[Rfam]
RNA: Flavo-1 RNA
RNA sequence: UUUUAACCUGUUUCCCGCACCAGGGAUUGCAGCGGCAUCCUCUCCCGAAGUGGCUGGAAGCCUACUUUGGGAGAGAUACAGCGGAAAGCCUGACCCGCU
Numbered sequence: 001u002u003u004u005a006a007c008c009u010g011u012u013u014c015c016c017g018c019a020c021c022a023g024g025g026a027u028u029g030c031a032g033c034g035g036c037a038u039c040c041u042c043u044c045c046c047g048a049a050g051u052g053g054c055u056g057g058a059a060g061c062c063u064a065c066u067u068u069g070g071g072a073g074a075g076a077u078a079c080a081g082c083g084g085a086a087a088g089c090c091u092g093a094c095c096c097g098c099u
Base pairs, nucleotide, nucleotide: 023091024090025089027087028086032082033081037077038076039075042073043072044071045070046069047068048067049066050065051064052063053062